[Rfam]
Nucleotides: 079
Stems, first nucleotide, its partner, number of pairs: 001079007010069005019035005043057004
Number, partner (000 for none) and nucleotide at each position: 001079u002078a003077c004076u005075g006074c007073c008000g009000g010069g011068c012067g013066c014065c015000a016000a017000a018000c019035a020034g021033g022032a023031u024000c025000a026000g027000c028000a029000g030000c031023a032022u033021c034020c035019u036000c037000a038000c039000g040000a041000u042000g043057c044056c045055c046054u047000c048000a049000g050000c051000a052000g053000c054046a055045g056044g057043g058000a059000c060000g061000c062000c063000a064000a065014g066013g067012c068011g069010u070000a071000c072000c073007g074006g075005c076004a077003g078002u079001a
Rfam assigns this 79-nucleotide sequence from Anopheles darlingi to the family "bZIP non canonical Hac1/Xbp1 intron". The family has 112 seed sequences and 1,325 matches in Rfam 15.1. Rfam classes the family as a small RNA. The family's consensus secondary structure was predicted with RNAfold. bZIP intron RNA is a non-canonical intron that was first reported in HAC1 gene in yeast and XBP1 gene in Metazoa. A search with the family's covariance model found it, with a score of 44 bits. On this family, see Hooks and Griffiths-Jones, RNA Biol 2011: "Conserved RNA structures in the non-canonical Hac1/Xbp1 intron".